A member of the RNA family "small nucleolar RNA snR35" from Dentipellis fragilis, 200 nucleotides long. It is annotated as an H/ACA-box small nucleolar RNA. For this family Rfam cites "Identification and functional analysis of 20 Box H/ACA small nucleolar RNAs (snoRNAs) from Schizosaccharomyces pombe" (Li et al., J Biol Chem, 2005). The match comes from Rfam's covariance-model search (37 bits).

[Rfam]
RNA sequence: UUCGUGCGGCGACAUGGCUUUACUUUCCCCAGUGUUGCUCACAGCCGCUUAUUCCACGCGGCCGUUCGAGUGUCAAGCCAUGCCCCGAUCGAACGGAACGUCUCAGCACCUUAUGCCCGCGCCUGGUGGUUUCUGCAGCUGCUGGCCUGUAAUAGGGGCACGCAGAUGUGGGCGUGGGCGGGUCGGUGGUUCCGACAUAC
Numbered sequence: 001u002u003c004g005u006g007c008g009g010c011g012a013c014a015u016g017g018c019u020u021u022a023c024u025u026u027c028c029c030c031a032g033u034g035u036u037g038c039u040c041a042c043a044g045c046c047g048c049u050u051a052u053u054c055c056a057c058g059c060g061g062c063c064g065u066u067c068g069a070g071u072g073u074c075a076a077g078c079c080a081u082g083c084c085c086c087g088a089u090c091g092a093a094c095g096g097a098a099c100g101u102c103u104c105a106g107c108a109c110c111u112u113a114u115g116c117c118c119g120c121g122c123c124u125g126g127u128g129g130u131u132u133c134u135g136c137a138g139c140u141g142c143u144g145g146c147c148u149g150u151a152a153u154a155g156g157g158g159c160a161c162g163c164a165g166a167u168g169u170g171g172g173c174g175u176g177g178g179c180g181g182g183u184c185g186g187u188g189g190u191u192c193c194g195a196c197a198u199a200c
Stems, first nucleotide, its partner, number of pairs: 016084003020080001037071004045061004094194006112181001114180012